The family of this 81-nucleotide RNA from Orthohepacivirus hominis is "SL588 non-coding RNA".
RNA sequence: UUGGCCCCUUUACGCCAAUGAAGGCCUCGGGUGGGCAGGGUGGUUGCUCUCCCCCCGAAGCUCUCGGCCUAAUUGGGGCCC
Numbered sequence: 001u002u003g004g005c006c007c008c009u010u011u012a013c014g015c016c017a018a019u020g021a022a023g024g025c026c027u028c029g030g031g032u033g034g035g036c037a038g039g040g041u042g043g044u045u046g047c048u049c050u051c052c053c054c055c056c057g058a059a060g061c062u063c064u065c066g067g068c069c070u071a072a073u074u075g076g077g078g079c080c081c
Stems, first nucleotide, its partner, number of pairs: 003080006014069001016067001019066002023062003027058005033052003037048002040045001
A reference for the family is Mauger et al. (2015), "Functionally conserved architecture of hepatitis C virus RNA genomes", Proc Natl Acad Sci U S A. The source organism's lineage runs through Viruses, Orthornavirae, Kitrinoviricota, Amarillovirales and Orthohepacivirus hominis. It is one of the family's seed sequences.